[Rfam]
RNA sequence: CCUGCCGAAGUUUCCCUCAGGAUAGCAGAAGCUCGUUACAAACAGUUUUAUGAGGUAAAGCGAAUGAUUAGAGGUCUCGGGGCUGAAAUGGCCUUAGCCUAUUCUCAAACUUUAAAUAUGUAAGAAGUCCUUGUUGCUUAGUUGAACGUGGACAUACGAAUGUAGAGCUUUUAGUGGGCCAUUUUUGGUAAGCAGAACUGGCGAUGCGGGAUGAACCGAACGCGAAGUUAAAGUGCCGGAAUGCACGCUCAUCAGACACCACAAAAGGUGUUAGUUCAUCUAGACAGCCGGACGGUGGCCAUGGAAGUCGGAAUCCGCUAAGGAGUGUGUAACAACUCACCGGCCGAAUGAACUAGCCCUGAAAAUGGAUGGCGCUCAAGCGUGCUACUUAUACUUCGCCCACACCCUACAACAGGGGUGUGGAGUAGGCAGGCGUGGGGGUGGUGACGAAGCCUUGGCUGUGAAGCUGGGUCGAACCGCCCCUAGUGCAGAU
Numbered sequence: 001c002c003u004g005c006c007g008a009a010g011u012u013u014c015c016c017u018c019a020g021g022a023u024a025g026c027a028g029a030a031g032c033u034c035g036u037u038a039c040a041a042a043c044a045g046u047u048u049u050a051u052g053a054g055g056u057a058a059a060g061c062g063a064a065u066g067a068u069u070a071g072a073g074g075u076c077u078c079g080g081g082g083c084u085g086a087a088a089u090g091g092c093c094u095u096a097g098c099c100u101a102u103u104c105u106c107a108a109a110c111u112u113u114a115a116a117u118a119u120g121u122a123a124g125a126a127g128u129c130c131u132u133g134u135u136g137c138u139u140a141g142u143u144g145a146a147c148g149u150g151g152a153c154a155u156a157c158g159a160a161u162g163u164a165g166a167g168c169u170u171u172u173a174g175u176g177g178g179c180c181a182u183u184u185u186u187g188g189u190a191a192g193c194a195g196a197a198c199u200g201g202c203g204a205u206g207c208g209g210g211a212u213g214a215a216c217c218g219a220a221c222g223c224g225a226a227g228u229u230a231a232a233g234u235g236c237c238g239g240a241a242u243g244c245a246c247g248c249u250c251a252u253c254a255g256a257c258a259c260c261a262c263a264a265a266a267g268g269u270g271u272u273a274g275u276u277c278a279u280c281u282a283g284a285c286a287g288c289c290g291g292a293c294g295g296u297g298g299c300c301a302u303g304g305a306a307g308u309c310g311g312a313a314u315c316c317g318c319u320a321a322g323g324a325g326u327g328u329g330u331a332a333c334a335a336c337u338c339a340c341c342g343g344c345c346g347a348a349u350g351a352a353c354u355a356g357c358c359c360u361g362a363a364a365a366u367g368g369a370u371g372g373c374g375c376u377c378a379a380g381c382g383u384g385c386u387a388c389u390u391a392u393a394c395u396u397c398g399c400c401c402a403c404a405c406c407c408u409a410c411a412a413c414a415g416g417g418g419u420g421u422g423g424a425g426u427a428g429g430c431a432g433g434c435g436u437g438g439g440g441g442u443g444g445u446g447a448c449g450a451a452g453c454c455u456u457g458g459c460u461g462u463g464a465a466g467c468u469g470g471g472u473c474g475a476a477c478c479g480c481c482c483c484u485a486g487u488g489c490a491g492a493u
Base pairs, nucleotide, nucleotide: 001433002432003431004430005429006428011024013022014021015020027172028171029170030169031168032167033166046125047124048123049122050121051120052119058113059111060110065107066106067105070102072100073099074098077097079095080094081093082092084090127153128152129151130150132148133147134146135145178202179201180200181199183197184196185195186194187193207218208217209216222399223398224397225396226395228393232389233388234387241386243385246382247381248380266360267359268358270357271356272355273354274353275352276351277350278349279348287344288343289342290341291340293317294316295315299311300310318322323338327336328335400423401422402421403420404419405418406417407416408415434488436485437484438483439482440481441480442479443478444477445476452472453471458467459466460465
Dot-bracket structure: ((((((....(.(((....))).)..(((((((............(((((((.....(((....(((..(.(((..(.((((.(.....).)))).)))).)..)))..)).).....))))))).((((.((((.........)))).))))............))))))).....((((.(((((.....))))).))))....(((......)))...(((((.(...(((......(.(..(((.................(((.((((((((((.......(((((.(((...((.........))...)))(...)(...((......)).).)))))...)))))))))))))...................)))..)))))...).)))))(((((((((......)))))))))....))))))(.((((((((((......((....(((....)))...))...))))))))))..).....